[Rfam]
Guanidine-II riboswitch aptamer (mini-ykkC): a 48-nucleotide RNA from Parahoeflea halophila.
RNA sequence: AAGCGAGGACGACCUCCCCAUUGAGGAAACACCGCCGGGACGACCCGG
Dot-bracket structure: ..(.((((....)))).)................(((((....)))))
Simpler in structure and has fewer highly conserved nucleotide positions than the ykkC-yxkD leader. Despite this each of its two stem-loop structures directly bind free guanidine. A search with the family's covariance model found it, with a score of 41 bits. Lineage of the source: Bacteria > Pseudomonadati > Pseudomonadota > Alphaproteobacteria > Parahoeflea.